[Rfam]
RNA: MIR158 microRNA precursor family
Organism: Brassica napus
RNA sequence: ACACGUCUUCUCGGUAUUUCUUUGUCUAUAUUCUUGGAAGAAGCGAUGAGGUCUCGUUGCACUUUCCCAAAUGUAGACAAAGCAAAACCGUGAUGACGUCAA
Numbered sequence: 001a002c003a004c005g006u007c008u009u010c011u012c013g014g015u016a017u018u019u020c021u022u023u024g025u026c027u028a029u030a031u032u033c034u035u036g037g038a039a040g041a042a043g044c045g046a047u048g049a050g051g052u053c054u055c056g057u058u059g060c061a062c063u064u065u066c067c068c069a070a071a072u073g074u075a076g077a078c079a080a081a082g083c084a085a086a087a088c089c090g091u092g093a094u095g096a097c098g099u100c101a102a
Stems, first nucleotide, its partner, number of pairs: 003099005009093002012090001014088002018084001020082010032071001034069001036067005043060006